[Rfam]
RNA sequence: GUUCAGGCGGCAUCCUCCCUCCUCCUCCCUGAGGAUGCCGCCGCAAAGAUACGGUGAAGCCCCUCCUCCUCCCUGGGCUUCGCAGUAAAGGCGACCUUCCCCUCCUCCUCCCUGGGAAGGUCGCCACA
Numbered sequence: 001g002u003u004c005a006g007g008c009g010g011c012a013u014c015c016u017c018c019c020u021c022c023u024c025c026u027c028c029c030u031g032a033g034g035a036u037g038c039c040g041c042c043g044c045a046a047a048g049a050u051a052c053g054g055u056g057a058a059g060c061c062c063c064u065c066c067u068c069c070u071c072c073c074u075g076g077g078c079u080u081c082g083c084a085g086u087a088a089a090g091g092c093g094a095c096c097u098u099c100c101c102c103u104c105c106u107c108c109u110c111c112c113u114g115g116g117a118a119g120g121u122c123g124c125c126a127c128a
Base pairs, nucleotide, nucleotide: 007041008040009039011037012036013035014034015033016032017031053083055082056081057080058079059078060077061076062075092123093122094121095120096119097118098117099116100115101114